[Rfam]
RNA: Flavo-1 RNA
RNA sequence: UACUUGCGUUAGGGAUUGUAGUGGCAUCCUUUUUUGAGGUACGAGAAAAAGAUAUAACGGAAAGCCCGACCUGUU
Numbered sequence: 001u002a003c004u005u006g007c008g009u010u011a012g013g014g015a016u017u018g019u020a021g022u023g024g025c026a027u028c029c030u031u032u033u034u035u036g037a038g039g040u041a042c043g044a045g046a047a048a049a050a051g052a053u054a055u056a057a058c059g060g061a062a063a064g065c066c067c068g069a070c071c072u073g074u075u
Base pairs, nucleotide, nucleotide: 012067013066014065016063017062021058022057026053027052028051032048033047034046035045